[Rfam]
RNA sequence: AUAAUGAUACUUCUGUCCGGCCAACGUUACUGUAUUGGGGGCAGCUUCCAGAGAACCCGGAAGAGGAAUCUUUAUUCCUAUGC
Numbered sequence: 001a002u003a004a005u006g007a008u009a010c011u012u013c014u015g016u017c018c019g020g021c022c023a024a025c026g027u028u029a030c031u032g033u034a035u036u037g038g039g040g041g042c043a044g045c046u047u048c049c050a051g052a053g054a055a056c057c058c059g060g061a062a063g064a065g066g067a068a069u070c071u072u073u074a075u076u077c078c079u080a081u082g083c
Stems, first nucleotide, its partner, number of pairs: 012080001013044006045063003049059001051057001064079006

A member of the RNA family "pemK RNA" from Caproiciproducens galactitolivorans, 83 nucleotides long. The match comes from Rfam's covariance-model search (44 bits).